Shown here is a 109-nucleotide RNA from Coniosporium apollinis, a member of the family "tRNA". The match comes from Rfam's covariance-model search (53 bits). The family's RNA type in Rfam is transfer RNA. The family's consensus secondary structure is taken from published work. Rfam's curators write: Transfer RNA (tRNA) molecules are approximately 80 nucleotides in length. Their secondary structure includes four short double-helical elements and three loops (D, anti-codon, and T loops). Further hydrogen bonds mediate the characteristic L-shaped molecular structure. tRNAs have two regions of fundamental functional importance: the anti-codon, which is responsible for specific mRNA codon recognition, and the 3' end, to which the tRNAs corresponding amino acid is attached (by aminoacyl-tRNA synthetases). tRNAs cope with the degeneracy of the genetic code in two manners: having more than one tRNA (with a specific anti-codon) for a particular amino acid; and 'wobble' base-pairing, i.e. permitting non-standard base-pairing at the 3rd anti-codon position. Its family is annotated with triplet codon-amino acid adaptor activity in the Gene Ontology.

[Rfam]
RNA sequence: GUCUUCGUGGUGUAGUCGGUUAUCACGUCGGUCUCAUAUGUCGCUAUAUGACUGUCUGGUCAACCAGACGGCGAUCCGAAGGUCACGAGUUCGAAUCUCGUCGAGGACA
Numbered sequence: 001g002u003c004u005u006c007g008u009g010g011u012g013u014a015g016u017c018g019g020u021u022a023u024c025a026c027g028u029c030g031g032u033c034u035c036a037u038a039u040g041u042c043g044c045u046a047u048a049u050g051a052c053u054g055u056c057u058g059g060u061c062a063a064c065c066a067g068a069c070g071g072c073g074a075u076c077c078g079a080a081g082g083u084c085a086c087g088a089g090u091u092c093g094a095a096u097c098u099c100g101u102c103g104a105g106g107a108c109a
Base pairs, nucleotide, nucleotide: 001108002107003106004105005104006103007102010026011025012024028079029078030077031076085101086100087099088098089097